A member of the RNA family "Group II catalytic intron D1-D4-5" from Virgibacillus necropolis, 186 nucleotides long. Group II introns are found in rRNA, tRNA and mRNA of organelles in fungi, plants and protists, and also in mRNA in bacteria. Its family is annotated with Group II intron splicing in the Gene Ontology.

[Rfam]
RNA sequence: UUCAACUUUACAACAGAGGAUGGGAAUGACGGAACCAAGUUUCCUGAAACUAUUCCGUCAAUACUCCUGUAUGCUAUCAAGACUGACAGGUCUUGCGGUUUGAAGCACAGGUGGAGUCGGCAGAACGACGGCUGAGGCCAUUCCCUUGGAAAAGGUAUUCCAACCGAUAUGCCGCAUGAAUGAAAA
Numbered sequence: 001u002u003c004a005a006c007u008u009u010a011c012a013a014c015a016g017a018g019g020a021u022g023g024g025a026a027u028g029a030c031g032g033a034a035c036c037a038a039g040u041u042u043c044c045u046g047a048a049a050c051u052a053u054u055c056c057g058u059c060a061a062u063a064c065u066c067c068u069g070u071a072u073g074c075u076a077u078c079a080a081g082a083c084u085g086a087c088a089g090g091u092c093u094u095g096c097g098g099u100u101u102g103a104a105g106c107a108c109a110g111g112u113g114g115a116g117u118c119g120g121c122a123g124a125a126c127g128a129c130g131g132c133u134g135a136g137g138c139c140a141u142u143c144c145c146u147u148g149g150a151a152a153a154g155g156u157a158u159u160c161c162a163a164c165c166g167a168u169a170u171g172c173c174g175c176a177u178g179a180a181u182g183a184a185a186a
Base pairs, nucleotide, nucleotide: 018055019054020053021052022051023050031045032044034042056178057177058176066111067110068109069108070102071101073099074098075097078095079094080093081092082091083090118174119173120172121171122170127164130161131160132149133148134147136145137144153159